Alphaproteobacteria transfer-messenger RNA: a 356-nucleotide RNA sequence from Prosthecomicrobium pneumaticum. It scores 309 bits against the family's covariance model.
[Rfam]
RNA sequence: GCGCUUUUCAGAACGGCCCCGCAUCCCUAUAUUCGCAAUGCCGGCGCGAGCCGGAUAUGGCGAUAAACGGCCAUCGUAAUAAACCCUUCGGACCCGGGGGCGGUACCCGGCGCCUCCACCCGAGCCCAUUCGAGAGAGUGGGUUCCGGCGGGGGCGAAAUAGGAUCGACGAGGGCGUAAAGGGUGGGCUUUCGCUCGGCAUGGUUCCGCCGUUAUCGGGCCGAACCUAUAGUUGCGAAUGACAACUAUGCUCCGGUGGCUGUCGCCGCGUAAGCGGUGCCGGUACCGAAAUCAAAGUCCUUGCGGGUAGCACUGUAAGGCGGGGUUCGGAGGCACCUGGCAACAGAAGCCUCCACU
Numbered sequence: 001g002c003g004c005u006u007u008u009c010a011g012a013a014c015g016g017c018c019c020c021g022c023a024u025c026c027c028u029a030u031a032u033u034c035g036c037a038a039u040g041c042c043g044g045c046g047c048g049a050g051c052c053g054g055a056u057a058u059g060g061c062g063a064u065a066a067a068c069g070g071c072c073a074u075c076g077u078a079a080u081a082a083a084c085c086c087u088u089c090g091g092a093c094c095c096g097g098g099g100g101c102g103g104u105a106c107c108c109g110g111c112g113c114c115u116c117c118a119c120c121c122g123a124g125c126c127c128a129u130u131c132g133a134g135a136g137a138g139u140g141g142g143u144u145c146c147g148g149c150g151g152g153g154g155c156g157a158a159a160u161a162g163g164a165u166c167g168a169c170g171a172g173g174g175c176g177u178a179a180a181g182g183g184u185g186g187g188c189u190u191u192c193g194c195u196c197g198g199c200a201u202g203g204u205u206c207c208g209c210c211g212u213u214a215u216c217g218g219g220c221c222g223a224a225c226c227u228a229u230a231g232u233u234g235c236g237a238a239u240g241a242c243a244a245c246u247a248u249g250c251u252c253c254g255g256u257g258g259c260u261g262u263c264g265c266c267g268c269g270u271a272a273g274c275g276g277u278g279c280c281g282g283u284a285c286c287g288a289a290a291u292c293a294a295a296g297u298c299c300u301u302g303c304g305g306g307u308a309g310c311a312c313u314g315u316a317a318g319g320c321g322g323g324g325u326u327c328g329g330a331g332g333c334a335c336c337u338g339g340c341a342a343c344a345g346a347a348g349c350c351u352c353c354a355c356u
Stems, first nucleotide, its partner, number of pairs: 041054004059195005069188001071186005084174003088171003094110005111156007196211004201222003205219003322337004328353006